[Rfam]
Nucleotides: 044
Stems, first nucleotide, its partner, number of pairs: 001044009012034001013032007
Number, partner (000 for none) and nucleotide at each position: 001044g002043g003042g004041u005040u006039u007038a008037u009036u010000u011000a012034a013032u014031g015030u016029u017028u018027a019026a020000a021000u022000u023000a024000a025000u026019u027018u028017a029016a030015a031014c032013a033000u034012u035000a036009a037008a038007u039006a040005a041004a042003c043002c044001c
Description:
A member of the RNA family "K10 transport/localisation element (TLS)" from Xenopus laevis, 44 nucleotides long. A search with the family's covariance model found it, with a score of 44 bits. The family's consensus secondary structure is taken from published work. Rfam 15.1 lists 18 matches to the family in 17 species. NCBI's taxonomy places the organism under Eukaryota, Eumetazoa, Deuterostomia, Pipidae, Xenopus. This family represents the 44 nucleotide K10 transport/localisation element (TLS) from Drosophila melanogaster.